The record is a 108-nucleotide sequence from Affinirhizobium straminoryzae, which matches "rpsB sRNA" in Rfam. It scores 47 bits against the family's covariance model. The family's consensus secondary structure is taken from published work. The family's RNA type in Rfam is small RNA. The literature on the family includes a 2009 paper in BMC Genomics by Meyer et al., "Identification of candidate structured RNAs in the marine organism 'Candidatus Pelagibacter ubique'". Rfam 15.1 lists 245 matches to the family in 245 species.
RNA sequence: CACACGCGAGGCUUGGGGCUAUCCGGGAGAAAUCCGGAUCGUUCCGCCGGUGGUCGGUGAGAUCCGACUGUUCGUCUCGCGGGGGUUAAACCGGAAACUAGGAGAAAA
Numbered sequence: 001c002a003c004a005c006g007c008g009a010g011g012c013u014u015g016g017g018g019c020u021a022u023c024c025g026g027g028a029g030a031a032a033u034c035c036g037g038a039u040c041g042u043u044c045c046g047c048c049g050g051u052g053g054u055c056g057g058u059g060a061g062a063u064c065c066g067a068c069u070g071u072u073c074g075u076c077u078c079g080c081g082g083g084g085g086u087u088a089a090a091c092c093g094g095a096a097a098c099u100a101g102g103a104g105a106a107a108a
Base pairs, nucleotide, nucleotide: 001084003082005081006080007079008078009077010076011075016045017044024036025035027034052069053068054067055066056065057064
Dot-bracket structure: (.(.(((((((....((......((.(......))).......))......((((((......)))))).....)))))))).)........................